RNA sequence: AAGCUGGUACGUGACUGGCGUCAGAUGGAUUUAACCAUCAGGGAGCGUGCCAAUAUAUAGAAUGCCGAACGCCUGGGCAGCUGAA
Dot-bracket structure: ..(.((((((((..(([[[[[...((((......))))..))..)))))))).)........((((..]]]]]..))))......

This 85-nucleotide RNA sequence from bacterium E08(2017) belongs to the Rfam family "ZMP/ZTP riboswitch aptamer (pfl RNA motif)". The base pairs follow the family's consensus structure, which is taken from published work. Gene Ontology terms of the family: one-carbon metabolic process and regulation of purine nucleotide biosynthetic process. The match comes from Rfam's covariance-model search (66 bits). For this family Rfam cites "Metal Ion-Mediated Nucleobase Recognition by the ZTP Riboswitch" (Trausch et al., Chem Biol, 2015).